[Rfam]
The family of this 86-nucleotide sequence from Hevea brasiliensis is "small nucleolar RNA snoR117". Rfam links the family to the GO terms RNA processing and nucleolus.
RNA sequence: GGCCUUUGAUGCAUAGAAAAAUUGUUCGUACCAUCUGAUGAUAUGGAUCUCUUGAUGCAUUGAAACAUCUCUAGCUUCUGAGGCCU
Numbered sequence: 001g002g003c004c005u006u007u008g009a010u011g012c013a014u015a016g017a018a019a020a021a022u023u024g025u026u027c028g029u030a031c032c033a034u035c036u037g038a039u040g041a042u043a044u045g046g047a048u049c050u051c052u053u054g055a056u057g058c059a060u061u062g063a064a065a066c067a068u069c070u071c072u073a074g075c076u077u078c079u080g081a082g083g084c085c086u
Stems, first nucleotide, its partner, number of pairs: 001085006
A search with the family's covariance model found it, with a score of 58 bits.